[Rfam]
RNA sequence: UCUGUGGAUUAGGUAGUUUCAUGUUGUUGGGCUCUGAGUUGCAAUCGCAAGAACAUCGAACUGCCUGACCCACUGC
Numbered sequence: 001u002c003u004g005u006g007g008a009u010u011a012g013g014u015a016g017u018u019u020c021a022u023g024u025u026g027u028u029g030g031g032c033u034c035u036g037a038g039u040u041g042c043a044a045u046c047g048c049a050a051g052a053a054c055a056u057c058g059a060a061c062u063g064c065c066u067g068a069c070c071c072a073c074u075g076c
Base pairs, nucleotide, nucleotide: 004073005072006071007070009068010067011066012065013064014063015062016061017060018059019058022055023054024053025052027050028049029048031046
mir-196 microRNA precursor family: a 76-nucleotide RNA sequence from Rhadina sibilatrix.
The literature on the family includes a 2003 paper in Science by Lim et al., "Vertebrate microRNA genes".
The match comes from Rfam's covariance-model search (62 bits).
Its family is annotated with gene silencing by miRNA and RISC complex in the Gene Ontology.
The family's consensus secondary structure was predicted with PFOLD.
Taxonomically the source falls in Rhadina (Eukaryota, Opisthokonta, Deuterostomia, Passeriformes).